[Rfam]
RNA sequence: UAUAUUUGCCGCUCCAAUAAAAAAAUAUUGGCUACAUAAUAAUCAUUUACAACAAUAUUGGCAUG
Numbered sequence: 001u002a003u004a005u006u007u008g009c010c011g012c013u014c015c016a017a018u019a020a021a022a023a024a025a026u027a028u029u030g031g032c033u034a035c036a037u038a039a040u041a042a043u044c045a046u047u048u049a050c051a052a053c054a055a056u057a058u059u060g061g062c063a064u065g
Base pairs, nucleotide, nucleotide: 014031015030016029017028018027019026